[Rfam]
RNA sequence: UUUUUGCUGUGAUGAUUCCUCAAGGACGGUAUCUGAGUGAGGUUGUGCUAGAAAAGCCUUCCUCCUGUGAUUACAUCCAAACUGACAAGGAAUUCUGAGUAUAAU
Numbered sequence: 001u002u003u004u005u006g007c008u009g010u011g012a013u014g015a016u017u018c019c020u021c022a023a024g025g026a027c028g029g030u031a032u033c034u035g036a037g038u039g040a041g042g043u044u045g046u047g048c049u050a051g052a053a054a055a056g057c058c059u060u061c062c063u064c065c066u067g068u069g070a071u072u073a074c075a076u077c078c079a080a081a082c083u084g085a086c087a088a089g090g091a092a093u094u095c096u097g098a099g100u101a102u103a104a105u
Stems, first nucleotide, its partner, number of pairs: 002104002005101003037066001039064004

Background: The family of this 105-nucleotide sequence from Panicum virgatum is "Small nucleolar RNA Z118/Z121/Z120". Taxonomically the source falls in Panicum sect. Hiantes (Eukaryota, Streptophytina, Liliopsida, Panicinae). On this family, see Chen et al., Nucleic Acids Res 2003: "The high diversity of snoRNAs in plants: identification and comparative study of 120 snoRNA genes from Oryza sativa". It scores 77 bits against the family's covariance model.